RNA sequence: ACUAGAGGACUAAGAAGGCUGAUUCUGAUGAAGCAAGAGUCUGCUGAUACACUCCUAAAAAGUGGGGGGGGGGGGGGGGGUUGAAGAAAACAGCCCUUAGUAGAAAAUAUCAGAGGACUGACCAUACUACCCAACAUUC
Numbered sequence: 001a002c003u004a005g006a007g008g009a010c011u012a013a014g015a016a017g018g019c020u021g022a023u024u025c026u027g028a029u030g031a032a033g034c035a036a037g038a039g040u041c042u043g044c045u046g047a048u049a050c051a052c053u054c055c056u057a058a059a060a061a062g063u064g065g066g067g068g069g070g071g072g073g074g075g076g077g078g079g080g081u082u083g084a085a086g087a088a089a090a091c092a093g094c095c096c097u098u099a100g101u102a103g104a105a106a107a108u109a110u111c112a113g114a115g116g117a118c119u120g121a122c123c124a125u126a127c128u129a130c131c132c133a134a135c136a137u138u139c
Stems, first nucleotide, its partner, number of pairs: 002062002006056004017045003021041006078132004091120003095116003101112001103110001

This 139-nucleotide sequence from Erinaceus europaeus belongs to the Rfam family "Small Cajal body specific RNA 4". On this family, see Darzacq et al., EMBO J 2002: "Cajal body-specific small nuclear RNAs: a novel class of 2'-O-methylation and pseudouridylation guide RNAs". scaRNAs are a specific class of small nuclear RNAs which localise to the Cajal bodies and guide the modification of RNA polymerase II transcribed spliceosomal RNAs U1, U2, U4, U5 and U12. ACA26 belongs to the H/ACA box class of guide RNAs as it has the predicted hairpin-hinge-hairpin-tail structure, conserved H/ACA-box motifs and is found associated with GAR1. Clan: SCARNA4 clan.